[Rfam]
Nucleotides: 312
Base pairs, nucleotide, nucleotide: 001312002311003310004309008305009304010303013265014264015263016262017261018260019259022079023078024077025076026075037054038053039052040051041050042049089295090294091293092292093291098240099239100238101237106118107117108116109115120137121136122135123134124133125132141232142231143230144229145228146227159219160218266283267282268281269280270279271278
Number, partner (000 for none) and nucleotide at each position: 001312a002311u003310c004309g005000g006000g007000u008305g009304g010303a011000a012000g013265c014264u015263u016262g017261c018260g019259u020000u021000u022079a023078g024077g025076g026075g027000u028000a029000a030000a031000c032000a033000a034000a035000c036000g037054g038053a039052u040051a041050g042049a043000g044000c045000c046000u047000c048000g049042u050041c051040u052039a053038u054037c055000a056000u057000a058000u059000u060000c061000g062000u063000a064000u065000a066000u067000g068000c069000a070000u071000a072000c073000g074000g075026c076025c077024c078023u079022u080000g081000g082000u083000g084000a085000a086000g087000g088000u089295c090294u091293g092292a093291g094000a095000a096000a097000a098240g099239c100238c101237a102000g103000c104000u105000u106118g107117c108116u109115c110000u111000a112000g113000c114000g115109g116108a117107g118106c119000c120137g121136c122135c123134u124133a125132u126000g127000a128000a129000u130000u131000c132125a133124u134123g135122g136121g137120c138000g139000u140000u141232g142231g143230a144229g145228u146227c147000a148000a149000c150000a151000g152000c153000a154000a155000u156000g157000c158000a159219c160218g161000g162000u163000g164000u165000c166000c167000u168000g169000g170000u171000c172000g173000c174000a175000u176000g177000g178000c179000g180000g181000u182000u183000g184000a185000a186000g187000c188000g189000u190000u191000u192000c193000a194000u195000u196000g197000c198000g199000c200000a201000g202000a203000c204000g205000u206000u207000g208000a209000c210000c211000a212000g213000g214000a215000u216000g217000g218160c219159g220000u221000u222000g223000g224000g225000a226000a227146g228145a229144c230143u231142c232141c233000u234000c235000g236000g237101u238100g239099g240098c241000a242000g243000c244000g245000c246000u247000a248000u249000g250000a251000a252000g253000u254000g255000c256000a257000a258000u259019a260018c261017g262016c263015g264014a265013g266283g267282c268281a269280g270279c271278a272000u273000a274000u275000g276000a277000u278271u279270g280269c281268u282267g283266u284000a285000a286000c287000u288000c289000a290000a291093u292092u293091c294090a295089g296000a297000c298000u299000a300000c301000u302000c303010u304009c305008u306000a307000u308000u309004c310003g311002a312001u
Rfam assigns this 312-nucleotide sequence from Basidiobolus meristosporus to the family "Nuclear RNase P". The family's consensus secondary structure is taken from published work. NCBI's taxonomy places the organism under Eukaryota, Opisthokonta, Fungi, Basidiobolaceae, Basidiobolus meristosporus. It scores 120 bits against the family's covariance model.